[Rfam]
RNA sequence: CAAACGGUCCUUUUAAGGACCACCCAAAUCUCCUUUAAAUGGCAUU
Numbered sequence: 001c002a003a004a005c006g007g008u009c010c011u012u013u014u015a016a017g018g019a020c021c022a023c024c025c026a027a028a029u030c031u032c033c034u035u036u037a038a039a040u041g042g043c044a045u046u
Stems, first nucleotide, its partner, number of pairs: 006021006
Dot-bracket structure: .....((((((....)))))).........................
RNA: Histone 3' UTR stem-loop